[Rfam]
RNA sequence: UAAACAUUGCUUAAUAUAACCUGUAUAUAUUUAGUAAUAUGGACUAAAUGUUUCUACAAGGCUACCGUAAAUAGUCUGACUACAGGUAUAUGUAUAUAGAGA
Numbered sequence: 001u002a003a004a005c006a007u008u009g010c011u012u013a014a015u016a017u018a019a020c021c022u023g024u025a026u027a028u029a030u031u032u033a034g035u036a037a038u039a040u041g042g043a044c045u046a047a048a049u050g051u052u053u054c055u056a057c058a059a060g061g062c063u064a065c066c067g068u069a070a071a072u073a074g075u076c077u078g079a080c081u082a083c084a085g086g087u088a089u090a091u092g093u094a095u096a097u098a099g100a101g102a
Stems, first nucleotide, its partner, number of pairs: 019087007029049007059077006
RNA: Purine riboswitch aptamer